[Rfam]
RNA sequence: AUACGUUCGCCUCAACUCAUGGGGUGCAUCAAAUGGAAGUAGGGAACGGGAUUUCCAG
Numbered sequence: 001a002u003a004c005g006u007u008c009g010c011c012u013c014a015a016c017u018c019a020u021g022g023g024g025u026g027c028a029u030c031a032a033a034u035g036g037a038a039g040u041a042g043g044g045a046a047c048g049g050g051a052u053u054u055c056c057a058g
Stems, first nucleotide, its partner, number of pairs: 004048005010024005034057007